[Rfam]
RNA sequence: CGUUCAUGCCCUCCUUGGGCGUUUCCUCCCUAGACUUGGACCGCGUCGUCUCCGCGAUGCGGUCUUUUUUUGUCCGAG
Numbered sequence: 001c002g003u004u005c006a007u008g009c010c011c012u013c014c015u016u017g018g019g020c021g022u023u024u025c026c027u028c029c030c031u032a033g034a035c036u037u038g039g040a041c042c043g044c045g046u047c048g049u050c051u052c053c054g055c056g057a058u059g060c061g062g063u064c065u066u067u068u069u070u071u072g073u074c075c076g077a078g
Base pairs, nucleotide, nucleotide: 008020009019010018011017040063041062042061043060044059045058046057047056048055
The record is a 78-nucleotide sequence from Nitratireductor mangrovi, which matches "Makes More Granules Regulator RNA (mmgR)" in Rfam. Pairs were carried over by alignment from the consensus structure. The source organism's lineage runs through Bacteria, Pseudomonadati, Alphaproteobacteria, Hyphomicrobiales and Nitratireductor. A reference for the family is Lagares et al. (2017), "Regulation of Polyhydroxybutyrate Accumulation in Sinorhizobium meliloti by the Trans-Encoded Small RNA MmgR", J Bacteriol. Rfam classes the family as a small RNA.